RNA: Iron response element I
Organism: Gadus morhua
RNA sequence: GAUCUUGCUUCAACAGUGUUUGAACGGAACUUC
Numbered sequence: 001g002a003u004c005u006u007g008c009u010u011c012a013a014c015a016g017u018g019u020u021u022g023a024a025c026g027g028a029a030c031u032u033c
Stems, first nucleotide, its partner, number of pairs: 001033002003028003007025001009024005014018001